[Rfam]
RNA sequence: GGUGUGAAGGUUGAGACCAUACCAGAAGCACUCACAACAAGGCCCUGUCAGAUUCCAAUGAAUCUGUGAAUUCUGCU
Numbered sequence: 001g002g003u004g005u006g007a008a009g010g011u012u013g014a015g016a017c018c019a020u021a022c023c024a025g026a027a028g029c030a031c032u033c034a035c036a037a038c039a040a041g042g043c044c045c046u047g048u049c050a051g052a053u054u055c056c057a058a059u060g061a062a063u064c065u066g067u068g069a070a071u072u073c074u075g076c077u
Base pairs, nucleotide, nucleotide: 013045015043017042018041021077023075024074025073026072027071049066050065051064052063053062054061055060

The record is a 77-nucleotide RNA from Alligator mississippiensis, which matches "Mammalian CPEB3 ribozyme" in Rfam. Rfam's curators write: The mammalian CPEB3 ribozyme is a self cleaving RNA located in the second intron of the CPEB3 gene which belongs to a family of genes regulating messenger RNA polyadenylation. Lineage of the source: Eukaryota > Metazoa > Euteleostomi > Sauria > Alligator. The match comes from Rfam's covariance-model search (42 bits). The base pairs follow the family's consensus structure, which is taken from published work.